[Rfam]
RNA sequence: GCUUGCAUGAGCUUCGGUGGUCCGGAGUGCAGGCUUCAAACCUGUAGCCGACUGGCGUCGGAGUGGUUCGAUUCCACCUUGCAAGC
Numbered sequence: 001g002c003u004u005g006c007a008u009g010a011g012c013u014u015c016g017g018u019g020g021u022c023c024g025g026a027g028u029g030c031a032g033g034c035u036u037c038a039a040a041c042c043u044g045u046a047g048c049c050g051a052c053u054g055g056c057g058u059c060g061g062a063g064u065g066g067u068u069c070g071a072u073u074c075c076a077c078c079u080u081g082c083a084a085g086c
Stems, first nucleotide, its partner, number of pairs: 001086007009078001012027006028046006048061005063077004

Selenocysteine transfer RNA: an 86-nucleotide RNA sequence from Dimorphilus gyrociliatus. Lineage of the source: Eukaryota > Opisthokonta > Metazoa > Eumetazoa > Dimorphilus. The match comes from Rfam's covariance-model search (81 bits). Rfam 15.1 lists 4,211 matches to the family in 3,344 species.